RNA sequence: GAAUACCAUCGUGAUGUGGUUAUAUUAAUCAUAAUGCUAUGAUAAUAGGACAAUAAUUUUAUUGUCCUUUUUUUUAA
Numbered sequence: 001g002a003a004u005a006c007c008a009u010c011g012u013g014a015u016g017u018g019g020u021u022a023u024a025u026u027a028a029u030c031a032u033a034a035u036g037c038u039a040u041g042a043u044a045a046u047a048g049g050a051c052a053a054u055a056a057u058u059u060u061a062u063u064g065u066c067c068u069u070u071u072u073u074u075u076a077a
Stems, first nucleotide, its partner, number of pairs: 026044002029042004047068009
A member of the RNA family "ABC transporter regulator" from Serratia ficaria, 77 nucleotides long. Pairs were carried over by alignment from the consensus structure, which is taken from published work. On this family, see Chao et al., EMBO J 2012: "An atlas of Hfq-bound transcripts reveals 3' UTRs as a genomic reservoir of regulatory small RNAs". The organism belongs to Serratia, within Bacteria.